[Rfam]
RNA sequence: AUGUUUCUUCGGGGCAGGGUGCAACUCCCUACCGGCGGUUAUAGUCCGCGACUCCCUUUCGAGGGACUGAUUCAGUGAAAUUCUGAAACCGACGGUUAAAGUCCGGAUGAUAGAGGAAAUAU
Numbered sequence: 001a002u003g004u005u006u007c008u009u010c011g012g013g014g015c016a017g018g019g020u021g022c023a024a025c026u027c028c029c030u031a032c033c034g035g036c037g038g039u040u041a042u043a044g045u046c047c048g049c050g051a052c053u054c055c056c057u058u059u060c061g062a063g064g065g066a067c068u069g070a071u072u073c074a075g076u077g078a079a080a081u082u083c084u085g086a087a088a089c090c091g092a093c094g095g096u097u098a099a100a101g102u103c104c105g106g107a108u109g110a111u112a113g114a115g116g117a118a119a120u121a122u
Stems, first nucleotide, its partner, number of pairs: 003120008017029003031102002033091002035049004044089002053066002071087005093105003
The family of this 122-nucleotide RNA from Butyricimonas sp. An62 is "FMN riboswitch aptamer (RFN element)". Rfam links the family to the GO term FMN binding.